[Rfam]
RNA sequence: UGUGGGAGCGAGACGGGGACUCACUGUGAUUUUUAUAUAGUCAGUCUUUUUCUCUCUCCUAUA
Numbered sequence: 001u002g003u004g005g006g007a008g009c010g011a012g013a014c015g016g017g018g019a020c021u022c023a024c025u026g027u028g029a030u031u032u033u034u035a036u037a038u039a040g041u042c043a044g045u046c047u048u049u050u051u052c053u054c055u056c057u058c059c060u061a062u063a
Stems, first nucleotide, its partner, number of pairs: 001063008010054004015049007023041005
A member of the RNA family "mir-14 microRNA precursor family" from Drosophila mojavensis, 63 nucleotides long. Its family is annotated with RISC complex and miRNA-mediated post-transcriptional gene silencing in the Gene Ontology. On this family, see Li et al., BMC Genomics 2009: "Direct sequencing and expression analysis of a large number of miRNAs in Aedes aegypti and a multi-species survey of novel mosquito miRNAs".